[Rfam]
RNA sequence: UCUCCCACGCCUCUCCACGAUGCGCACCUUGGGAGAU
Numbered sequence: 001u002c003u004c005c006c007a008c009g010c011c012u013c014u015c016c017a018c019g020a021u022g023c024g025c026a027c028c029u030u031g032g033g034a035g036a037u
Stems, first nucleotide, its partner, number of pairs: 001036006008024003